[Rfam]
RNA sequence: CUGUAUCCACUGAUAGAAUGUGAACAAUUGUUAUCGUUGGUUUGCACUAGGAUGCAAAAGAAAGAAAUCCUUGCACUUUUUGUCUGUUUGUGAUGGCCCAGAUUGAAUUGAGGAAUACAUUU
Numbered sequence: 001c002u003g004u005a006u007c008c009a010c011u012g013a014u015a016g017a018a019u020g021u022g023a024a025c026a027a028u029u030g031u032u033a034u035c036g037u038u039g040g041u042u043u044g045c046a047c048u049a050g051g052a053u054g055c056a057a058a059a060g061a062a063a064g065a066a067a068u069c070c071u072u073g074c075a076c077u078u079u080u081u082g083u084c085u086g087u088u089u090g091u092g093a094u095g096g097c098c099c100a101g102a103u104u105g106a107a108u109u110g111a112g113g114a115a116u117a118c119a120u121u122u
Stems, first nucleotide, its partner, number of pairs: 002056007011046002014044004019039001023032003068114006076105001079102004084096005
Shown here is a 122-nucleotide RNA sequence from Carlito syrichta, a member of the family "Small nucleolar RNA SNORA31". Rfam classes the family as an H/ACA-box small nucleolar RNA. ACA31 (SNORA31) belongs to the H/ACA class of snoRNAs which are thought to guide the sites of modification of uridines to pseudouridines. ACA31 is predicted to guide the pseudouridylation of U3713 in 28S rRNA and U218 in 18S rRNA. This family includes the mouse homologue snoMBI-161. It scores 83 bits against the family's covariance model.